[Rfam]
MIR9563 microRNA precursor family: a 133-nucleotide RNA from Brassica cretica.
RNA sequence: GGAAUAUAAAAACCCGUCUCUUAACUUUUAAUUAAAAAAAUUAAGAACCGGUUCUUAAAUACUCUUAAAUAAUAUCUAAGAACCGGUUCUUACAUUUUUUAUUUAAAAGUUAAGAUACGGGUUCUUAUAUUCC
Dot-bracket structure: (((((((((.(((((((.(((((((((((((.(((((((..((((((((((...............................))))))))))..))))))).))))))))))))).))))))).)))))))))
Numbered sequence: 001g002g003a004a005u006a007u008a009a010a011a012a013c014c015c016g017u018c019u020c021u022u023a024a025c026u027u028u029u030a031a032u033u034a035a036a037a038a039a040a041u042u043a044a045g046a047a048c049c050g051g052u053u054c055u056u057a058a059a060u061a062c063u064c065u066u067a068a069a070u071a072a073u074a075u076c077u078a079a080g081a082a083c084c085g086g087u088u089c090u091u092a093c094a095u096u097u098u099u100u101a102u103u104u105a106a107a108a109g110u111u112a113a114g115a116u117a118c119g120g121g122u123u124c125u126u127a128u129a130u131u132c133c
Stems, first nucleotide, its partner, number of pairs: 001133009011123007019115013033101007042092010

Rfam links the family to the GO terms RISC complex and miRNA-mediated post-transcriptional gene silencing. A search with the family's covariance model found it, with a score of 93 bits. Lineage of the source: Eukaryota > Viridiplantae > Embryophyta > Pentapetalae > Brassica.